[Rfam]
RNA sequence: AACUGAAGUUUCCAUUGGCAGAGUAUGUUGAGUCAAGUUAUAUUCUUUAUACAUAAGGCACCUCGUUAAUUUAGUUUAUUGAUAUUUAUUACAUUAUACGAAAGGGCUUUAUUUUUUAAAAGUAUUUUGGCGAGACUCUUGAGGGAACAGGACAAGCUGAAGACUACAGGCUGAAGCUGUCCCCUAAGAAAGCGAGCCAACAAUACGAAGUAUUAUAAAUAAAUAGCUA
Numbered sequence: 001a002a003c004u005g006a007a008g009u010u011u012c013c014a015u016u017g018g019c020a021g022a023g024u025a026u027g028u029u030g031a032g033u034c035a036a037g038u039u040a041u042a043u044u045c046u047u048u049a050u051a052c053a054u055a056a057g058g059c060a061c062c063u064c065g066u067u068a069a070u071u072u073a074g075u076u077u078a079u080u081g082a083u084a085u086u087u088a089u090u091a092c093a094u095u096a097u098a099c100g101a102a103a104g105g106g107c108u109u110u111a112u113u114u115u116u117u118a119a120a121a122g123u124a125u126u127u128u129g130g131c132g133a134g135a136c137u138c139u140u141g142a143g144g145g146a147a148c149a150g151g152a153c154a155a156g157c158u159g160a161a162g163a164c165u166a167c168a169g170g171c172u173g174a175a176g177c178u179g180u181c182c183c184c185u186a187a188g189a190a191a192g193c194g195a196g197c198c199a200a201c202a203a204u205a206c207g208a209a210g211u212a213u214u215a216u217a218a219a220u221a222a223a224u225a226g227c228u229a
Stems, first nucleotide, its partner, number of pairs: 001216001004215003022046002025043004047074003051070001054068003058064001090212003094208002099106001108120004122206005127200005137189004142185004147180002150177001155172004

Description:
Rfam assigns this 229-nucleotide RNA from Staphylococcus epidermidis to the family "S. aureus tsr24 small RNA". The literature on the family includes a 2016 paper in MBio by Carroll et al., "Genome-wide Annotation, Identification, and Global Transcriptomic Analysis of Regulatory or Small RNA Gene Expression in Staphylococcus aureus". NCBI's taxonomy places the organism under Bacteria, Bacillota, Caryophanales, Staphylococcus, Staphylococcus epidermidis. A search with the family's covariance model found it, with a score of 65 bits. The base pairs follow the family's consensus structure, which was predicted with RNAfold.